[Rfam]
RNA sequence: UCCCAAAACUUCAAGUCAGGAUAUUUUCCGUUCUUAAUAGAACAUAUCUCAACGAAAACGUCUGUUAAAGUUUUGGAAGAUUAAUACUACUCGCUUCUCCUAUCGUGUCCGUUUUGGAUGCAUUUUUGGAGGGUUUGGUGGGCAAUUUUUGUUUUAAAGAUAUGCCACCAUCAUUUUUGAGUAGCGAGGCACCUAAGAGUUGAGCUCGGGAUGCGUGUUCCUCAGUAACGCGCUAACUUUUCCCGUUUUCGUAGUAAGGUGCCUUACAUUG
Numbered sequence: 001u002c003c004c005a006a007a008a009c010u011u012c013a014a015g016u017c018a019g020g021a022u023a024u025u026u027u028c029c030g031u032u033c034u035u036a037a038u039a040g041a042a043c044a045u046a047u048c049u050c051a052a053c054g055a056a057a058a059c060g061u062c063u064g065u066u067a068a069a070g071u072u073u074u075g076g077a078a079g080a081u082u083a084a085u086a087c088u089a090c091u092c093g094c095u096u097c098u099c100c101u102a103u104c105g106u107g108u109c110c111g112u113u114u115u116g117g118a119u120g121c122a123u124u125u126u127u128g129g130a131g132g133g134u135u136u137g138g139u140g141g142g143c144a145a146u147u148u149u150u151g152u153u154u155u156a157a158a159g160a161u162a163u164g165c166c167a168c169c170a171u172c173a174u175u176u177u178u179g180a181g182u183a184g185c186g187a188g189g190c191a192c193c194u195a196a197g198a199g200u201u202g203a204g205c206u207c208g209g210g211a212u213g214c215g216u217g218u219u220c221c222u223c224a225g226u227a228a229c230g231c232g233c234u235a236a237c238u239u240u241u242c243c244c245g246u247u248u249u250c251g252u253a254g255u256a257a258g259g260u261g262c263c264u265u266a267c268a269u270u271g
Stems, first nucleotide, its partner, number of pairs: 003076005019063004024058005030043005087184006095133006102126001105121006137169005145161007186265004191260004201251004208243004214232006

Shown here is a 271-nucleotide RNA from Lachancea thermotolerans, a member of the family "Small nucleolar RNA snR191". Lineage of the source: Eukaryota > Saccharomycetes > Saccharomycetaceae > Lachancea > Lachancea thermotolerans. The family's RNA type in Rfam is H/ACA-box small nucleolar RNA. Its family is annotated with RNA processing and nucleolus in the Gene Ontology.